Notes: Shown here is a 46-nucleotide sequence from Musa balbisiana, a member of the family "Plastid-ycf3 group II-D1 intron". A reference for the family is Richter et al. (2023), "Retrograde signaling in plants: A critical review focusing on the GUN pathway and beyond", Plant Commun. The family's consensus secondary structure was predicted with LocARNA. Rfam's curators write: Plastid rpl16 is a non-coding RNA (ncRNA) recognised in plastids. It was recognised in and intronic region of a ribosome rpl16 gene.
[Rfam]
RNA sequence: AUUCCUUCUGUCGUGUAUCCUCGAUUGAUGCAGCCUCAGAGUUCAA
Numbered sequence: 001a002u003u004c005c006u007u008c009u010g011u012c013g014u015g016u017a018u019c020c021u022c023g024a025u026u027g028a029u030g031c032a033g034c035c036u037c038a039g040a041g042u043u044c045a046a
Stems, first nucleotide, its partner, number of pairs: 010025004032043003

The match comes from Rfam's covariance-model search (61 bits).